[Rfam]
Group II catalytic intron D1-D4-1: an 82-nucleotide RNA from Marinobacter lutaoensis.
Rfam describes the family as follows. Group II introns are found in rRNA, tRNA and mRNA of organelles in fungi, plants and protists, and also in mRNA in bacteria.
The base pairs follow the family's consensus structure.
The source organism's lineage runs through Bacteria, Pseudomonadati, Pseudomonadales, Marinobacteraceae and Marinobacter.
RNA sequence: CUAUCCACCUCGUGAGGGGUGGAGAUGGGGGAUCAGAACUCAGCAGAGGCCAUAGUAGGUGCGUUACCGCGUACUGAAGGGC
Numbered sequence: 001c002u003a004u005c006c007a008c009c010u011c012g013u014g015a016g017g018g019g020u021g022g023a024g025a026u027g028g029g030g031g032a033u034c035a036g037a038a039c040u041c042a043g044c045a046g047a048g049g050c051c052a053u054a055g056u057a058g059g060u061g062c063g064u065u066a067c068c069g070c071g072u073a074c075u076g077a078a079g080g081g082c
Base pairs, nucleotide, nucleotide: 001027004023005022006021007020008019009018010017011016039048040047041046049082050081051080058075059074060073061072062071063070
A search with the family's covariance model found it, with a score of 71 bits.